[Rfam]
RNA sequence: AGCCCACCACAUGUGGCUCGCAUGCUUAAAUAACUAACGGCAUAAUUAGAUCACUUGAUGACGACGUAUAUCGGUGUUCGCUAUAUAUACUAUCUACUGGUAAGUAUAUCUUUAAUAUACUUACCAGUAGAUAGUAUAUAUAGUGAACACCGAUAUGCGUCAUCAUCAAGUGAUUUAAUUAUGCCGUUAGUUAAGCAUGCGAGCCACAUGUGGUGAGCUUACG
Numbered sequence: 001a002g003c004c005c006a007c008c009a010c011a012u013g014u015g016g017c018u019c020g021c022a023u024g025c026u027u028a029a030a031u032a033a034c035u036a037a038c039g040g041c042a043u044a045a046u047u048a049g050a051u052c053a054c055u056u057g058a059u060g061a062c063g064a065c066g067u068a069u070a071u072c073g074g075u076g077u078u079c080g081c082u083a084u085a086u087a088u089a090c091u092a093u094c095u096a097c098u099g100g101u102a103a104g105u106a107u108a109u110c111u112u113u114a115a116u117a118u119a120c121u122u123a124c125c126a127g128u129a130g131a132u133a134g135u136a137u138a139u140a141u142a143g144u145g146a147a148c149a150c151c152g153a154u155a156u157g158c159g160u161c162a163u164c165a166u167c168a169a170g171u172g173a174u175u176u177a178a179u180u181a182u183g184c185c186g187u188u189a190g191u192u193a194a195g196c197a198u199g200c201g202a203g204c205c206a207c208a209u210g211u212g213g214u215g216a217g218c219u220u221a222c223g
Stems, first nucleotide, its partner, number of pairs: 001219003005215024033191029063161022085109007092101003
Shown here is a 223-nucleotide RNA from Oryza sativa, a member of the family "MIR810 microRNA precursor family".
It is one of the family's seed sequences.
The family's consensus secondary structure was predicted with RNAalifold.
NCBI's taxonomy places the organism under Eukaryota, Streptophytina, Tracheophyta, Oryzeae, Oryza.